About this RNA
Alphaproteobacteria transfer-messenger RNA: a 343-nucleotide RNA sequence from Pontixanthobacter luteolus. Rfam links the family to the GO term RNA catabolic process. The source organism's lineage runs through Bacteria, Pseudomonadota, Alphaproteobacteria, Sphingomonadales and Pontixanthobacter. The base pairs follow the family's consensus structure, which is taken from published work. By type it is a non-coding RNA gene.

RNA sequence: UCACUUCACAUUAAGCCGGCAUCGCCUAUAUAGGGGAUGCCGGUUUCGACCGGAUAUGGCGAUAAAUUGCAGUGUGCAAUAGACAUAACGGACCCGGGGGCAGUACCCGGCGGCUCCACCAAAAACCGCAGGAAACUGCGGUUCCUGACGGGGCCGAACUAGGAUCGACGUGUGUUGAAAAGCAUUGUUUUUGCCCGGGUUGAGAAUCCCCGUAAAAAGCUCAUUUUUAUAAGUGCAAACGAUAACGAAGCACUCGCUCUCGCUGCGUAAUUUGAUGGCCUAACGGCCUGACUUUACAAAGCCUAAGCGCGGUUGGACCCACCGGGCAACAGAAGCGGAUUCC
Numbered sequence: 001u002c003a004c005u006u007c008a009c010a011u012u013a014a015g016c017c018g019g020c021a022u023c024g025c026c027u028a029u030a031u032a033g034g035g036g037a038u039g040c041c042g043g044u045u046u047c048g049a050c051c052g053g054a055u056a057u058g059g060c061g062a063u064a065a066a067u068u069g070c071a072g073u074g075u076g077c078a079a080u081a082g083a084c085a086u087a088a089c090g091g092a093c094c095c096g097g098g099g100g101c102a103g104u105a106c107c108c109g110g111c112g113g114c115u116c117c118a119c120c121a122a123a124a125a126c127c128g129c130a131g132g133a134a135a136c137u138g139c140g141g142u143u144c145c146u147g148a149c150g151g152g153g154c155c156g157a158a159c160u161a162g163g164a165u166c167g168a169c170g171u172g173u174g175u176u177g178a179a180a181a182g183c184a185u186u187g188u189u190u191u192u193g194c195c196c197g198g199g200u201u202g203a204g205a206a207u208c209c210c211c212g213u214a215a216a217a218a219g220c221u222c223a224u225u226u227u228u229a230u231a232a233g234u235g236c237a238a239a240c241g242a243u244a245a246c247g248a249a250g251c252a253c254u255c256g257c258u259c260u261c262g263c264u265g266c267g268u269a270a271u272u273u274g275a276u277g278g279c280c281u282a283a284c285g286g287c288c289u290g291a292c293u294u295u296a297c298a299a300a301g302c303c304u305a306a307g308c309g310c311g312g313u314u315g316g317a318c319c320c321a322c323c324g325g326g327c328a329a330c331a332g333a334a335g336c337g338g339a340u341u342c343c
Base pairs, nucleotide, nucleotide: 040053041052042051043050058195059194060193061192062191069188070187071186072185073184074183075182084174085173086172088171089170090169094110095109096108097107098106111156112155113154114153115152116151117150196212197211198210199209201223202222203221207219310324311323312322313321315341316340318338319337